[Rfam]
RNA: drz-agam-1 ribozyme
Organism: Hermetia illucens
RNA sequence: UGCUCUAAUACCAAACCCUAUCUCCACCUCCACGUGGUGACCGCUGGGAGCCCUUUCUUAAAGAAAAGCUGCGGACGGAGAAGG
Numbered sequence: 001u002g003c004u005c006u007a008a009u010a011c012c013a014a015a016c017c018c019u020a021u022c023u024c025c026a027c028c029u030c031c032a033c034g035u036g037g038u039g040a041c042c043g044c045u046g047g048g049a050g051c052c053c054u055u056u057c058u059u060a061a062a063g064a065a066a067a068g069c070u071g072c073g074g075a076c077g078g079a080g081a082a083g084g
Stems, first nucleotide, its partner, number of pairs: 017084003021080001023078002026038003050070001052068001054066005